[Rfam]
RNA sequence: AGAGGAUAACGGGGCCACAGCAAAAGUGUUCACGUCAUGGCCCCUGUCAGAUUCUGGUGAAUCUGCAAAUUCUGCU
Number, nucleotide and partner (000 for none) at each position: 001a000002g000003a000004g000005g000006a000007u000008a000009a000010c000011g044012g043013g042014g041015c040016c039017a000018c000019a076020g075021c074022a073023a000024a071025a070026g038027u037028g036029u000030u000031c000032a000033c000034g000035u000036c028037a027038u026039g016040g015041c014042c013043c012044c011045u000046g000047u000048c065049a064050g063051a062052u061053u060054c059055u000056g000057g000058u000059g054060a053061a052062u051063c050064u049065g048066c000067a000068a000069a000070u025071u024072c000073u022074g021075c020076u019
Rfam assigns this 76-nucleotide sequence from Canis lupus to the family "Mammalian CPEB3 ribozyme". The family's consensus secondary structure is taken from published work. Rfam describes the family as follows. The mammalian CPEB3 ribozyme is a self cleaving RNA located in the second intron of the CPEB3 gene which belongs to a family of genes regulating messenger RNA polyadenylation.